The family of this 76-nucleotide RNA sequence from Chlorocebus sabaeus is "mir-320 microRNA precursor family". Lineage of the source: Eukaryota > Opisthokonta > Euarchontoglires > Cercopithecinae > Chlorocebus. Pairs were carried over by alignment from the consensus structure, which was predicted with RNAalifold.
RNA sequence: AUAUUUUAAGGCCUUCUCUUCCUGGUUUUUCCCAGAGUCAGGAAAAGCUGGACUGAGAGGGCGAAAGAAAAAAACA
Numbered sequence: 001a002u003a004u005u006u007u008a009a010g011g012c013c014u015u016c017u018c019u020u021c022c023u024g025g026u027u028u029u030u031c032c033c034a035g036a037g038u039c040a041g042g043a044a045a046a047g048c049u050g051g052a053c054u055g056a057g058a059g060g061g062c063g064a065a066a067g068a069a070a071a072a073a074a075c076a
Stems, first nucleotide, its partner, number of pairs: 014059005022051004029044004